[Rfam]
RNA: Glycine riboswitch aptamer
RNA sequence: CGACGCCGCGCGGGAGAGCCCCGGGGAACGAGCCCGGGCGCCGAAGGAGCAACCCCUUCCCGGAAUCUCUCAGGCACACGGACCGCGCGGUCGAG
Numbered sequence: 001c002g003a004c005g006c007c008g009c010g011c012g013g014g015a016g017a018g019c020c021c022c023g024g025g026g027a028a029c030g031a032g033c034c035c036g037g038g039c040g041c042c043g044a045a046g047g048a049g050c051a052a053c054c055c056c057u058u059c060c061c062g063g064a065a066u067c068u069c070u071c072a073g074g075c076a077c078a079c080g081g082a083c084c085g086c087g088c089g090g091u092c093g094a095g
Stems, first nucleotide, its partner, number of pairs: 006090008020038006040075003043071002047069003053063002